RNA sequence: UUUGCGAACCGUUCUGUCGCUGCCAGGCUUAGCCUGGGGGAGGAAAGUCCGGACAACUCAGAGCACCAUACUUCCUAACGGGAAGGGCCUCCGAUCGGAUACGGGGGUACGACCAGUGCCGCAGAAAAGAACCGCCUCGCUUGCGGGGUAAGGGUGAAAAGGUGGGGUAAGAGCCCACCAGUGCAUCGGGUAACCGGUGCAGCUGGGUAAACUCUAUGGGUUGAAAGACCGUGUAUACCGGGAUUGAGGGCUGCUCGCUCGAACCGGGGGGUAGGUCGAUGCCGAUCGUACGCGUGAGCGUGCGGCUAGAUAAAUGACAGACUUUGCGCCUACGGCGCGAUGGACAGAAUCCGGCUUAUAGGUUCGCCUUUAUC
Numbered sequence: 001u002u003u004g005c006g007a008a009c010c011g012u013u014c015u016g017u018c019g020c021u022g023c024c025a026g027g028c029u030u031a032g033c034c035u036g037g038g039g040g041a042g043g044a045a046a047g048u049c050c051g052g053a054c055a056a057c058u059c060a061g062a063g064c065a066c067c068a069u070a071c072u073u074c075c076u077a078a079c080g081g082g083a084a085g086g087g088c089c090u091c092c093g094a095u096c097g098g099a100u101a102c103g104g105g106g107g108u109a110c111g112a113c114c115a116g117u118g119c120c121g122c123a124g125a126a127a128a129g130a131a132c133c134g135c136c137u138c139g140c141u142u143g144c145g146g147g148g149u150a151a152g153g154g155u156g157a158a159a160a161g162g163u164g165g166g167g168u169a170a171g172a173g174c175c176c177a178c179c180a181g182u183g184c185a186u187c188g189g190g191u192a193a194c195c196g197g198u199g200c201a202g203c204u205g206g207g208u209a210a211a212c213u214c215u216a217u218g219g220g221u222u223g224a225a226a227g228a229c230c231g232u233g234u235a236u237a238c239c240g241g242g243a244u245u246g247a248g249g250g251c252u253g254c255u256c257g258c259u260c261g262a263a264c265c266g267g268g269g270g271g272u273a274g275g276u277c278g279a280u281g282c283c284g285a286u287c288g289u290a291c292g293c294g295u296g297a298g299c300g301u302g303c304g305g306c307u308a309g310a311u312a313a314a315u316g317a318c319a320g321a322c323u324u325u326g327c328g329c330c331u332a333c334g335g336c337g338c339g340a341u342g343g344a345c346a347g348a349a350u351c352c353g354g355c356u357u358a359u360a361g362g363u364u365c366g367c368c369u370u371u372a373u374c
Base pairs, nucleotide, nucleotide: 004367005366006365007364008363009362010361011359013321014320015319016318017317018316020040021039023037024036025035026034027033028032045357046356047355049354050353051352052351053350054223055222056221057220061256062255063254064253066219067218068217069216070215071085072084073083074082075081086110087108088107089106090105091104092103093102111214112213116212117211118208119207120206132153133152134149135148136147137146138145139144161179162178163177164176165175166174181203182201183200184199185198186197187196188195189194227277228276229275230274238267239266240265241264248260249259250258251257286305287304288303289302290301291300292299293298
Dot-bracket structure: ...((((((((.((((((.((.((((((...)))))).))....[[[.[[[[[((((...[[[[.((((((((((.....)))))((((((((........))))))).)((...(((((...........((((((((....))))))..)).......((((((.......)))))).(((((((((....)))))))).)..)))..)))))))))))))...((((.......((((......((((.]]]]))))...))))......))))........((((((((....))))))))..........))))))............................]]]]]]]].).))))))).......

Bacterial RNase P class A: a 374-nucleotide RNA from a Cryomorphaceae bacterium.
The organism belongs to Cryomorphaceae, within Bacteria.
For this family Rfam cites "Ribonuclease P: unity and diversity in a tRNA processing ribozyme" (Frank and Pace, Annu Rev Biochem, 1998).
Rfam's curators write: Ribonuclease P (RNase P) is a ubiquitous endoribonuclease, found in archaea, bacteria and eukarya as well as chloroplasts and mitochondria.